[Rfam]
RNA sequence: GCCACACCCUCUUUCCAACGGAUCGUCCGGCGCGUACCUGCCGGGAAAGAAAGCGAGAC
Number, nucleotide and partner (000 for none) at each position: 001g000002c000003c000004a000005c000006a000007c000008c000009c000010u050011c049012u048013u047014u046015c045016c000017a000018a000019c000020g000021g000022a000023u000024c000025g000026u000027c044028c043029g042030g041031c040032g039033c000034g000035u000036a000037c000038c000039u032040g031041c030042c029043g028044g027045g015046a014047a013048a012049g011050a010051a000052a000053g000054c000055g000056a000057g000058a000059c000
RNA: msiK RNA
Organism: Kocuria soli